This 290-nucleotide sequence from Diutina rugosa belongs to the Rfam family "Group I catalytic intron". From the family's description: Group I catalytic introns are large self-splicing ribozymes. They catalyse their own excision from mRNA, tRNA and rRNA precursors in a wide range of organisms. The core secondary structure consists of 9 paired regions (P1-P9). These fold to essentially two domains - the P4-P6 domain (formed from the stacking of P5, P4, P6 and P6a helices) and the P3-P9 domain (formed from the P8, P3, P7 and P9 helices). Taxonomically the source falls in Diutina (Eukaryota, Opisthokonta, Dikarya, Saccharomycotina). Rfam 15.1 lists 5,602 matches to the family in 1,395 species. The family's consensus secondary structure is taken from published work. A search with the family's covariance model found it, with a score of 111 bits.

RNA sequence: CAAAGGUAGACCAGUAAUGGUCGGCCUAGUCUUUUUUAAUAAAAAAAAGGCUACAUCCUCAAAUUGCGGGGACUUCCUUAGAGCUUUGAGAUACCGCGGCCUUUGUGAAAACUAGGUGCAGCAGAUGGCGUAGGGGCCAUUGGAUGGUAAAAACUCUCAAAGAUUGGAUAAUCCGCAGCCAAGCCCUAAGUCUUGAAAAAGAUAUGGGUGCAGUUCACAGACUAAAUGUGGGUGGGUCUUGUUGUACAACAAGGCUUAAGAUAUAGUCGGUUAGCACUAGAAAUAGUGCU
Numbered sequence: 001c002a003a004a005g006g007u008a009g010a011c012c013a014g015u016a017a018u019g020g021u022c023g024g025c026c027u028a029g030u031c032u033u034u035u036u037u038a039a040u041a042a043a044a045a046a047a048a049g050g051c052u053a054c055a056u057c058c059u060c061a062a063a064u065u066g067c068g069g070g071g072a073c074u075u076c077c078u079u080a081g082a083g084c085u086u087u088g089a090g091a092u093a094c095c096g097c098g099g100c101c102u103u104u105g106u107g108a109a110a111a112c113u114a115g116g117u118g119c120a121g122c123a124g125a126u127g128g129c130g131u132a133g134g135g136g137c138c139a140u141u142g143g144a145u146g147g148u149a150a151a152a153a154c155u156c157u158c159a160a161a162g163a164u165u166g167g168a169u170a171a172u173c174c175g176c177a178g179c180c181a182a183g184c185c186c187u188a189a190g191u192c193u194u195g196a197a198a199a200a201g202a203u204a205u206g207g208g209u210g211c212a213g214u215u216c217a218c219a220g221a222c223u224a225a226a227u228g229u230g231g232g233u234g235g236g237u238c239u240u241g242u243u244g245u246a247c248a249a250c251a252a253g254g255c256u257u258a259a260g261a262u263a264u265a266g267u268c269g270g271u272u273a274g275c276a277c278u279a280g281a282a283a284u285a286g287u288g289c290u
Stems, first nucleotide, its partner, number of pairs: 001006001054234005060228002065177006075168003178214002183209004191202004218269001220268005236255008275288005